[Rfam]
RNA: c-di-GMP-I riboswitch aptamer
RNA sequence: UCAGAAAAACGCCACACCCGCAGCGAUGCGGAGCCGGAAAGCCACGGGUCUCAGCGAGAUGGCCGGGUUGCCUGA
Number, nucleotide and partner (000 for none) at each position: 001u000002c000003a000004g000005a000006a000007a000008a000009a000010c000011g000012c037013c036014a000015c000016a000017c000018c031019c030020g029021c028022a027023g000024c000025g000026a000027u022028g021029c020030g019031g018032a000033g000034c000035c000036g013037g012038a000039a000040a069041g068042c067043c066044a000045c065046g064047g063048g060049u059050c058051u000052c000053a000054g000055c000056g000057a000058g050059a049060u048061g000062g000063c047064c046065g045066g043067g042068u041069u040070g000071c000072c000073u000074g000075a000